This 133-nucleotide RNA sequence from Dryobates pubescens belongs to the Rfam family "Small Cajal body specific RNA 3". Rfam describes the family as follows. scaRNAs are a specific class of small nuclear RNAs which localise to the Cajal bodies and guide the modification of RNA polymerase II transcribed spliceosomal RNAs U1, U2, U4, U5 and U12. A search with the family's covariance model found it, with a score of 105 bits. Its family is annotated with Cajal body, RNA processing and nucleolus in the Gene Ontology. Lineage of the source: Eukaryota > Craniata > Saurischia > Theropoda > Dryobates. The family's RNA type in Rfam is small Cajal body RNA.
[Rfam]
RNA sequence: GCUGGGACCAGUUGGGACCAGCUGUGGGCAAAAGACGUGUUUUGUCCACUGUUGCAGUCUUCCUAGAGCAAAGUGGAGGUUUCUGUCUGCUUUAGGAGAGCAAACUAAAGCAGAUCGUUCCCCUCCACACACG
Numbered sequence: 001g002c003u004g005g006g007a008c009c010a011g012u013u014g015g016g017a018c019c020a021g022c023u024g025u026g027g028g029c030a031a032a033a034g035a036c037g038u039g040u041u042u043u044g045u046c047c048a049c050u051g052u053u054g055c056a057g058u059c060u061u062c063c064u065a066g067a068g069c070a071a072a073g074u075g076g077a078g079g080u081u082u083c084u085g086u087c088u089g090c091u092u093u094a095g096g097a098g099a100g101c102a103a104a105c106u107a108a109a110g111c112a113g114a115u116c117g118u119u120c121c122c123c124u125c126c127a128c129a130c131a132c133g
Stems, first nucleotide, its partner, number of pairs: 004063003009057001011055002024049006034041002075126005083117001085115003089111007